A member of the RNA family "Molybdenum/Tungsten riboswitch aptamer (Moco RNA motif)" from Geotalea daltonii, 118 nucleotides long.

[Rfam]
RNA sequence: UGAUUCUCAACUCUCCGAGCCACGCCGCCUAAAGGGUAGUUUUCCCAUGGCGACCGGCUAGGGUGCCGCUGGAAACGGCUGUGCCUCCCUUUUGGAAAGGAGAGCCUCAAAGUACCGG
Numbered sequence: 001u002g003a004u005u006c007u008c009a010a011c012u013c014u015c016c017g018a019g020c021c022a023c024g025c026c027g028c029c030u031a032a033a034g035g036g037u038a039g040u041u042u043u044c045c046c047a048u049g050g051c052g053a054c055c056g057g058c059u060a061g062g063g064u065g066c067c068g069c070u071g072g073a074a075a076c077g078g079c080u081g082u083g084c085c086u087c088c089c090u091u092u093u094g095g096a097a098a099g100g101a102g103a104g105c106c107u108c109a110a111a112g113u114a115c116c117g118g
Stems, first nucleotide, its partner, number of pairs: 004111001011104006019058003024054001026052004034045003061086006068079004087095002